Annotation: A member of the RNA family "t44 RNA" from Alishewanella agri, 93 nucleotides long. The source organism's lineage runs through Bacteria, Pseudomonadati, Alteromonadales, Alteromonadaceae and Alishewanella agri. The base pairs follow the family's consensus structure, which was predicted with LocARNA.
RNA sequence: AAACCCUAAAUUAAAUAACACACAUGCAUCGACACAUAUUCCGGGGUGCCUGACGAGAGUCGGGUCGGCAUAUGGGAUGCAUGGAGGCCUAAC
Numbered sequence: 001a002a003a004c005c006c007u008a009a010a011u012u013a014a015a016u017a018a019c020a021c022a023c024a025u026g027c028a029u030c031g032a033c034a035c036a037u038a039u040u041c042c043g044g045g046g047u048g049c050c051u052g053a054c055g056a057g058a059g060u061c062g063g064g065u066c067g068g069c070a071u072a073u074g075g076g077a078u079g080c081a082u083g084g085a086g087g088c089c090u091a092a093c
Stems, first nucleotide, its partner, number of pairs: 023083008035074005041068003048065005